[Rfam]
RNA sequence: CUGAGAGAGGUUCGUAACCAUCCCUCUAUAAAAAACUAGGACCCU
Numbered sequence: 001c002u003g004a005g006a007g008a009g010g011u012u013c014g015u016a017a018c019c020a021u022c023c024c025u026c027u028a029u030a031a032a033a034a035a036c037u038a039g040g041a042c043c044c045u
Base pairs, nucleotide, nucleotide: 006027007026008025009024010023015038016037
Dot-bracket structure: .....(((((....[[......))))).........]].......